[Rfam]
RNA sequence: AGAGCCAGGGGACACACGAAGAUGAAGCGAGCCUGAGAGCCUUCACUGAGGCUAUGACCAGGUACUCCGCUCCCCCGGGUGAUCCCCCGGUU
Number, nucleotide and partner (000 for none) at each position: 001a000002g000003a000004g000005c000006c000007a000008g085009g084010g083011g000012a000013c000014a000015c078016a000017c000018g075019a000020a000021g072022a000023u000024g000025a000026a071027g070028c069029g067030a066031g063032c062033c061034u060035g059036a000037g000038a053039g052040c051041c050042u049043u048044c000045a000046c000047u000048g043049a042050g041051g040052c039053u038054a000055u000056g000057a000058c000059c035060a034061g033062g032063u031064a000065c000066u030067c029068c000069g028070c027071u026072c021073c000074c000075c018076c000077g000078g015079g000080u000081g000082a000083u010084c009085c008086c000087c000088c000089g000090g000091u000092u000
Annotation
Shown here is a 92-nucleotide sequence from Orthohepacivirus hominis, a member of the family "Hepatitis C virus stem-loop SL8670". The literature on the family includes a 2015 paper in Proc Natl Acad Sci U S A by Mauger et al., "Functionally conserved architecture of hepatitis C virus RNA genomes".